A member of the RNA family "mir-3473 microRNA precursor family" from Nannospalax galili, 72 nucleotides long. A search with the family's covariance model found it, with a score of 73 bits. NCBI's taxonomy places the organism under Eukaryota, Mammalia, Boreoeutheria, Muroidea, Nannospalax. Its family is annotated with RISC complex, cellular response to mechanical stimulus and miRNA-mediated post-transcriptional gene silencing in the Gene Ontology. The base pairs follow the family's consensus structure, which was predicted with RNAalifold.

RNA sequence: ACUGCUGGGCCAUCUCUCCAGCCCAAUAAAUAAAAUAUUAAAAAAAAUGGGCUGGAGAGAUGGCUCAGUGGU
Number, nucleotide and partner (000 for none) at each position: 001a000002c071003u070004g069005c068006u067007g066008g065009g064010c063011c062012a061013u060014c059015u058016c057017u056018c055019c054020a053021g052022c051023c050024c049025a000026a000027u000028a000029a000030a000031u000032a000033a000034a000035a000036u000037a000038u000039u000040a000041a000042a000043a000044a000045a000046a000047a000048u000049g024050g023051g022052c021053u020054g019055g018056a017057g016058a015059g014060a013061u012062g011063g010064c009065u008066c007067a006068g005069u004070g003071g002072u000